[Rfam]
RNA sequence: GGAAUAACUGUUCCGCUACCCAAGACAGCAGGUACGUACGUUUAAUUGCGCUUGCGCAGCCCGCCGAGGUGGUUAAGAGAAGCUCACAUUCAUGGCUUUGUCGACCCCUGCUGUCAUUGGCGCAGGGGUCGUUUCUUUUCAGAAUU
Numbered sequence: 001g002g003a004a005u006a007a008c009u010g011u012u013c014c015g016c017u018a019c020c021c022a023a024g025a026c027a028g029c030a031g032g033u034a035c036g037u038a039c040g041u042u043u044a045a046u047u048g049c050g051c052u053u054g055c056g057c058a059g060c061c062c063g064c065c066g067a068g069g070u071g072g073u074u075a076a077g078a079g080a081a082g083c084u085c086a087c088a089u090u091c092a093u094g095g096c097u098u099u100g101u102c103g104a105c106c107c108c109u110g111c112u113g114u115c116a117u118u119g120g121c122g123c124a125g126g127g128g129u130c131g132u133u134u135c136u137u138u139u140c141a142g143a144a145u146u
Stems, first nucleotide, its partner, number of pairs: 028064002031061003034041002102131010